[Rfam]
RNA sequence: AAUCAAACAGAAGGGGUCAUCUUGUUUGUGUUGAGAGUGUUCCAGACUGCGUUCUGUCAUGACGACUUCCGGUGUUGUCCUGUCGGCGAAGGCAUCUAACUAUACUGGGAUUUACAGCUACUCGGGACAGUCUCUAGCUUUGCAUUCGCCUUGUUCCCAAAGACAAGAUCUGCAGCUCAGGUUCAAAGCAGCACCGGGACCCAUCUCGAGUUGGAGUCAAAGUUUCGUACUUGUCUGGUAUUGUGGCGGGCCUAGCCGUGAGUUGAGUCCGAGGUUGCCAGGCCGCACUGCGGGACUCGGUUGUACCGUUGGAUCUUGGACAGGCCUGGUUGGAGAGGUAGUCCUGGUUGUCCUCUCGCCAGAAAUGGUGCGGAGGGCAACCCCCCGCUGAGG
Numbered sequence: 001a002a003u004c005a006a007a008c009a010g011a012a013g014g015g016g017u018c019a020u021c022u023u024g025u026u027u028g029u030g031u032u033g034a035g036a037g038u039g040u041u042c043c044a045g046a047c048u049g050c051g052u053u054c055u056g057u058c059a060u061g062a063c064g065a066c067u068u069c070c071g072g073u074g075u076u077g078u079c080c081u082g083u084c085g086g087c088g089a090a091g092g093c094a095u096c097u098a099a100c101u102a103u104a105c106u107g108g109g110a111u112u113u114a115c116a117g118c119u120a121c122u123c124g125g126g127a128c129a130g131u132c133u134c135u136a137g138c139u140u141u142g143c144a145u146u147c148g149c150c151u152u153g154u155u156c157c158c159a160a161a162g163a164c165a166a167g168a169u170c171u172g173c174a175g176c177u178c179a180g181g182u183u184c185a186a187a188g189c190a191g192c193a194c195c196g197g198g199a200c201c202c203a204u205c206u207c208g209a210g211u212u213g214g215a216g217u218c219a220a221a222g223u224u225u226c227g228u229a230c231u232u233g234u235c236u237g238g239u240a241u242u243g244u245g246g247c248g249g250g251c252c253u254a255g256c257c258g259u260g261a262g263u264u265g266a267g268u269c270c271g272a273g274g275u276u277g278c279c280a281g282g283c284c285g286c287a288c289u290g291c292g293g294g295a296c297u298c299g300g301u302u303g304u305a306c307c308g309u310u311g312g313a314u315c316u317u318g319g320a321c322a323g324g325c326c327u328g329g330u331u332g333g334a335g336a337g338g339u340a341g342u343c344c345u346g347g348u349u350g351u352c353c354u355c356u357c358g359c360c361a362g363a364a365a366u367g368g369u370g371c372g373g374a375g376g377g378c379a380a381c382c383c384c385c386c387g388c389u390g391a392g393g
Stems, first nucleotide, its partner, number of pairs: 198218003201214003220232004
RNA: Ascomycota telomerase RNA, nucleotides 1155 to 1547